[Rfam]
RNA sequence: GAGAAUCGGGUCUGUGGUUGCAAGCCGAUGCCAGUCGCAGGCAAAACGGUCCACGUAAGUCAGCCAAAGCGCUGAUGAGCAUGGUGCGGUUUAGAAGUCAGUCCGACCGGGAUUCUUCCCGAGAGAGCGGCGUGAGGGCGUUUCCUACGCAGAGCAAAGCUCCAGUCGGCGGGUGUGGGGUCAAAGACCAGGUCAGCCGGUCAC
Number, nucleotide and partner (000 for none) at each position: 001g000002a000003g000004a000005a201006u200007c199008g198009g197010g000011u000012c196013u195014g194015u190016g189017g188018u187019u186020g000021c000022a000023a000024g000025c000026c000027g000028a176029u175030g174031c041032c000033a091034g090035u089036c088037g087038c086039a085040g000041g031042c000043a000044a000045a000046a000047c000048g000049g000050u084051c083052c000053a000054c000055g000056u000057a000058a076059g000060u074061c000062a000063g000064c000065c000066a000067a000068a000069g000070c000071g000072c000073u000074g060075a000076u058077g000078a000079g000080c000081a000082u183083g051084g050085u039086g038087c037088g036089g035090u034091u033092u000093a000094g000095a000096a000097g000098u000099c000100a000101g000102u000103c169104c168105g167106a166107c165108c121109g120110g119111g118112a117113u000114u000115c000116u000117u112118c111119c110120c109121g108122a000123g000124a000125g162126a161127g160128c159129g000130g000131c000132g155133u154134g000135a000136g000137g000138g000139c149140g148141u147142u000143u000144c000145c000146u000147a141148c140149g139150c000151a000152g000153a000154g133155c132156a000157a000158a000159g128160c127161u126162c125163c000164a000165g107166u106167c105168g104169g103170c000171g000172g000173g000174u030175g029176u028177g000178g000179g000180g000181u000182c000183a082184a000185a000186g019187a018188c017189c016190a015191g000192g000193u000194c014195a013196g012197c009198c008199g007200g006201u005202c000203a000204c000

The record is a 204-nucleotide RNA, which matches "raiA RNA" in Rfam. Rfam's curators put it in the seed alignment. The family's consensus secondary structure is taken from published work.